[Rfam]
RNA sequence: AGACGAGGCUACCGCCUCUCCUCAGCCCGAACGGAUCGAGGUAAACACUGGCUCAAAUAACUUUCUUAUCCGAAAUUCGUU
Numbered sequence: 001a002g003a004c005g006a007g008g009c010u011a012c013c014g015c016c017u018c019u020c021c022u023c024a025g026c027c028c029g030a031a032c033g034g035a036u037c038g039a040g041g042u043a044a045a046c047a048c049u050g051g052c053u054c055a056a057a058u059a060a061c062u063u064u065c066u067u068a069u070c071c072g073a074a075a076u077u078c079g080u081u
Stems, first nucleotide, its partner, number of pairs: 002020002005018005024053004029048001035042002

This 81-nucleotide RNA sequence from Legionella shakespearei belongs to the Rfam family "Legionella RNA 69". The organism belongs to Legionella shakespearei, within Bacteria. It is annotated as a small RNA. Rfam 15.1 lists 144 matches to the family in 7 species.